[Rfam]
RNA sequence: GUUGGUUACGGUGAUAUGGUGCCCAAGACUUAUAUAGGAAUGUUUGUUGGUGCCCUGUGUGCUCUAGCUGGUGUGUUGACGAUAGCUCUGCCCGUGCCGGUUAUUGUUUCCAAC
Numbered sequence: 001g002u003u004g005g006u007u008a009c010g011g012u013g014a015u016a017u018g019g020u021g022c023c024c025a026a027g028a029c030u031u032a033u034a035u036a037g038g039a040a041u042g043u044u045u046g047u048u049g050g051u052g053c054c055c056u057g058u059g060u061g062c063u064c065u066a067g068c069u070g071g072u073g074u075g076u077u078g079a080c081g082a083u084a085g086c087u088c089u090g091c092c093c094g095u096g097c098c099g100g101u102u103a104u105u106g107u108u109u110c111c112a113a114c
Stems, first nucleotide, its partner, number of pairs: 001114002004111002008107004013102003018097001021095002037077002040074001049063003